[Rfam]
RNA sequence: AAAAAUCUUACUAUUAUAUUUGUAUCAAAAUUUGUAUAAGUAUAAAAGCACUUAUACAGCCAUUCUGCUCGAAAUGGUACAGCGGUUUUUUAACUGGUGUUAUGAAUUGCAGCAACGCGAGAGUCGGCGUAUAACAGGCUUGGCGGUGUCCUGAGUGGGUACUUUGUAGGUGGUAAACAUAGAAAGUAAGCUAUGCCAUUAGUUGCUGGGCAGGACUAGCAACAUCAAGCGAAUUAGCUUGAUACAAAGUAAGU
Numbered sequence: 001a002a003a004a005a006u007c008u009u010a011c012u013a014u015u016a017u018a019u020u021u022g023u024a025u026c027a028a029a030a031u032u033u034g035u036a037u038a039a040g041u042a043u044a045a046a047a048g049c050a051c052u053u054a055u056a057c058a059g060c061c062a063u064u065c066u067g068c069u070c071g072a073a074a075u076g077g078u079a080c081a082g083c084g085g086u087u088u089u090u091u092a093a094c095u096g097g098u099g100u101u102a103u104g105a106a107u108u109g110c111a112g113c114a115a116c117g118c119g120a121g122a123g124u125c126g127g128c129g130u131a132u133a134a135c136a137g138g139c140u141u142g143g144c145g146g147u148g149u150c151c152u153g154a155g156u157g158g159g160u161a162c163u164u165u166g167u168a169g170g171u172g173g174u175a176a177a178c179a180u181a182g183a184a185a186g187u188a189a190g191c192u193a194u195g196c197c198a199u200u201a202g203u204u205g206c207u208g209g210g211c212a213g214g215a216c217u218a219g220c221a222a223c224a225u226c227a228a229g230c231g232a233a234u235u236a237g238c239u240u241g242a243u244a245c246a247a248a249g250u251a252a253g254u
Base pairs, nucleotide, nucleotide: 007190008189009188010187011186012185033058034057035056036055037054038053039052040051041050060077061076062075063074064073079100080099081098083096084095085094086093087092115130116129117128118127121141122140123139124138125137148216149215150214151213152212153211160251161250162249163248164247165246166245167244168243169200170199171198172197173196178195179194180193181192182191202223203222204221205220206219207218225242226241227240228239229238230237
RNA: ARRPOF RNA